[Rfam]
The record is a 73-nucleotide RNA from Trifolium pratense, which matches "MIR5272 microRNA precursor family" in Rfam. Rfam 15.1 lists 271 matches to the family in 4 species.
RNA sequence: GUUGAACUGAAUUGAUUUAUGUUUGGAUACAUUUAGUAAAAGUGAUUUUCACUAAUUUAUAUUGUUUGGAUAG
Numbered sequence: 001g002u003u004g005a006a007c008u009g010a011a012u013u014g015a016u017u018u019a020u021g022u023u024u025g026g027a028u029a030c031a032u033u034u035a036g037u038a039a040a041a042g043u044g045a046u047u048u049u050c051a052c053u054a055a056u057u058u059a060u061a062u063u064g065u066u067u068g069g070a071u072a073g
Base pairs, nucleotide, nucleotide: 011060012059014057015056016055017054021052022051025048026047027046028045030044031043032042033041034040
The match comes from Rfam's covariance-model search (68 bits). The organism belongs to Trifolium, within Eukaryota.